[Rfam]
RNA sequence: ACAGUUUGAGGCCACAGCAGAAGCACUUACGGUGCGGACUGUCAGAUUCAACAAGUCUGCAAAUUCCACU
Numbered sequence: 001a002c003a004g005u006u007u008g009a010g011g012c013c014a015c016a017g018c019a020g021a022a023g024c025a026c027u028u029a030c031g032g033u034g035c036g037g038a039c040u041g042u043c044a045g046a047u048u049c050a051a052c053a054a055g056u057c058u059g060c061a062a063a064u065u066c067c068a069c070u
Stems, first nucleotide, its partner, number of pairs: 010039001012037002016070002020066003023035003043059006